Description:
small nucleolar RNA snoR126: a 95-nucleotide sequence from Eragrostis curvula. The family's RNA type in Rfam is C/D-box small nucleolar RNA. It scores 58 bits against the family's covariance model. Pairs were carried over by alignment from the consensus structure, which was predicted with RNAalifold. Rfam 15.1 lists 423 matches to the family in 200 species.

RNA sequence: UGGCUGUGAUGACAAUUGAUAUCUUGCUAUCACUGAUUCUUAAUUUCAUUAAGGACCAAAUUUGUGAUGACCUUAUUUGUGCGUGUCUGAGCCAA
Numbered sequence: 001u002g003g004c005u006g007u008g009a010u011g012a013c014a015a016u017u018g019a020u021a022u023c024u025u026g027c028u029a030u031c032a033c034u035g036a037u038u039c040u041u042a043a044u045u046u047c048a049u050u051a052a053g054g055a056c057c058a059a060a061u062u063u064g065u066g067a068u069g070a071c072c073u074u075a076u077u078u079g080u081g082c083g084u085g086u087c088u089g090a091g092c093c094a095a
Base pairs, nucleotide, nucleotide: 001094002093003092004091